[Rfam]
RNA: Ribosomal protein L10 leader
RNA sequence: UGAAUUUAAUUGAUCAUGCCGUAGACAGCAGGGGCACGCAGUGCUUAAUAUCCUGCCGAGGUUUGUAGCAUCGACGUCCUAUGACUCGUUAUAGGGAAUUGAUUAUACUGCCUCCAUGUCUGCGCAUGGGGGCUUUUAUAUUGCUCGC
Numbered sequence: 001u002g003a004a005u006u007u008a009a010u011u012g013a014u015c016a017u018g019c020c021g022u023a024g025a026c027a028g029c030a031g032g033g034g035c036a037c038g039c040a041g042u043g044c045u046u047a048a049u050a051u052c053c054u055g056c057c058g059a060g061g062u063u064u065g066u067a068g069c070a071u072c073g074a075c076g077u078c079c080u081a082u083g084a085c086u087c088g089u090u091a092u093a094g095g096g097a098a099u100u101g102a103u104u105a106u107a108c109u110g111c112c113u114c115c116a117u118g119u120c121u122g123c124g125c126a127u128g129g130g131g132g133c134u135u136u137u138a139u140a141u142u143g144c145u146c147g148c
Base pairs, nucleotide, nucleotide: 028056029055030054031053032052033051034044035043036042110133111132112131113130114129115128116127117126118125119124
Dot-bracket structure: ...........................(((((((((.....)))......)))))).....................................................((((((((((....))))))))))...............